A member of the RNA family "Group II catalytic intron D1-D4-1" from Lachnospiraceae bacterium NK3A20, 75 nucleotides long. Lineage of the source: Bacteria > Bacillati > Bacillota > Lachnospirales > Lachnospiraceae.
Nucleotides: 075
Base pairs, nucleotide, nucleotide: 001025002024005022006021007020008019009018011016038045039044047075049073056068057067058066059065060064
Number, partner (000 for none) and nucleotide at each position: 001025u002024a003000a004000c005022c006021g007020c008019c009018g010000c011016c012000a013000c014000a015000a016011g017000a018009c019008g020007g021006c022005g023000c024002u025001g026000a027000a028000c029000g030000c031000a032000c033000a034000g035000g036000a037000g038045u039044c040000a041000g042000c043000c044039g045038a046000a047075g048000c049073c050000a051000u052000a053000g054000u055000a056068g057067u058066g059065g060064c061000a062000u063000a064060g065059c066058c067057g068056c069000g070000a071000a072000g073049g074000a075047c

About this RNA
Rfam links the family to the GO term Group II intron splicing. The match comes from Rfam's covariance-model search (55 bits). The family has 237 seed sequences and 2,508 matches in Rfam 15.1.